A member of the RNA family "SAM (S-adenosyl methionine) riboswitch aptamer" from Luteipulveratus mongoliensis, 116 nucleotides long. SAM-IV is a mRNA element that regulates gene expression via direct sensing of S-adenosylmethionine (SAM or AdoMet). On this family, see Weinberg et al., RNA 2008: "The aptamer core of SAM-IV riboswitches mimics the ligand-binding site of SAM-I riboswitches".

RNA sequence: GGUCAAGAGUCUCAGCGUCAAGCCCCGGCUUGCUGAGCGGCAACCCUCCGCCGCGGUGGGGUGCUCCGGGUGACGACCCGGCCCACCCGGCAGCCGCCCGUGGGCAAGCGCGAGUC
Numbered sequence: 001g002g003u004c005a006a007g008a009g010u011c012u013c014a015g016c017g018u019c020a021a022g023c024c025c026c027g028g029c030u031u032g033c034u035g036a037g038c039g040g041c042a043a044c045c046c047u048c049c050g051c052c053g054c055g056g057u058g059g060g061g062u063g064c065u066c067c068g069g070g071u072g073a074c075g076a077c078c079c080g081g082c083c084c085a086c087c088c089g090g091c092a093g094c095c096g097c098c099c100g101u102g103g104g105c106a107a108g109c110g111c112g113a114g115u116c
Base pairs, nucleotide, nucleotide: 001078002077003076004075009038011037012036013035014034015033016032021030022029039065040064041063044061045060046059048056049055081105082104083103084102085101086100089098090097091096